[Rfam]
RNA sequence: CCCAUAAGUAAUAAAAAGUCUGUUUAGGUCCCUUAACUUUAUUUAAAGUAUCAGUUUGGUCGUUUCUGUUAAUUUAAUUCAAAAAAACGUUAAAUUUUGAUCCUUUAACUUAUUUAAUUAGUAUUAGUUUGGUCCGUAAACUUACCGUUUUUUGAAUUAAAUUAACAAAAGGGACCAAACCGAUACUUUAAAUGAAGUUAAGGGACCUAAACAGACCUUUUAAUAUUUAUGGGA
Numbered sequence: 001c002c003c004a005u006a007a008g009u010a011a012u013a014a015a016a017a018g019u020c021u022g023u024u025u026a027g028g029u030c031c032c033u034u035a036a037c038u039u040u041a042u043u044u045a046a047a048g049u050a051u052c053a054g055u056u057u058g059g060u061c062g063u064u065u066c067u068g069u070u071a072a073u074u075u076a077a078u079u080c081a082a083a084a085a086a087a088c089g090u091u092a093a094a095u096u097u098u099g100a101u102c103c104u105u106u107a108a109c110u111u112a113u114u115u116a117a118u119u120a121g122u123a124u125u126a127g128u129u130u131g132g133u134c135c136g137u138a139a140a141c142u143u144a145c146c147g148u149u150u151u152u153u154g155a156a157u158u159a160a161a162u163u164a165a166c167a168a169a170a171g172g173g174a175c176c177a178a179a180c181c182g183a184u185a186c187u188u189u190a191a192a193u194g195a196a197g198u199u200a201a202g203g204g205a206c207c208u209a210a211a212c213a214g215a216c217c218u219u220u221u222a223a224u225a226u227u228u229a230u231g232g233g234a
Stems, first nucleotide, its partner, number of pairs: 002232007023211003027207003031203013045189003